[Rfam]
RNA sequence: UCAGUGGUGCAAAAGUGCUUAUAGUGCAGGUAGUAUUUCAUCACCUACUGCAGUUUUUGCACUUCAGCAUCACUGU
Numbered sequence: 001u002c003a004g005u006g007g008u009g010c011a012a013a014a015g016u017g018c019u020u021a022u023a024g025u026g027c028a029g030g031u032a033g034u035a036u037u038u039c040a041u042c043a044c045c046u047a048c049u050g051c052a053g054u055u056u057u058u059g060c061a062c063u064u065c066a067g068c069a070u071c072a073c074u075g076u
Base pairs, nucleotide, nucleotide: 004073005072006071007070009068010067013064014063015062016061017060018059021056023054025052026051027050029049030048031047032046033045

The family of this 76-nucleotide sequence from Podarcis lilfordi is "mir-17 microRNA precursor family". Its family is annotated with RISC complex and miRNA-mediated post-transcriptional gene silencing in the Gene Ontology. A reference for the family is Ambros (2001), "microRNAs: tiny regulators with great potential", Cell. The organism belongs to Podarcis, within Eukaryota. Rfam's curators write: This family represents the microRNA (miRNA) precursor mir-17, family, which includes mir-20, mir-91, and mir-103. miRNAs are transcribed as ~70nt precursors (modelled here) and subsequently processed by the Dicer enzyme to give a ~22nt product. A search with the family's covariance model found it, with a score of 58 bits.